[Rfam]
RNA sequence: UACAUUUGCGCCCUGAUUGAAAAUCAAUCACAUACAUCAUAAUCAUUUAAUAUAAUAUGGAAUG
Numbered sequence: 001u002a003c004a005u006u007u008g009c010g011c012c013c014u015g016a017u018u019g020a021a022a023a024u025c026a027a028u029c030a031c032a033u034a035c036a037u038c039a040u041a042a043u044c045a046u047u048u049a050a051u052a053u054a055a056u057a058u059g060g061a062a063u064g
Stems, first nucleotide, its partner, number of pairs: 014030006
RNA: S15-Flavobacteria ribosomal protein leader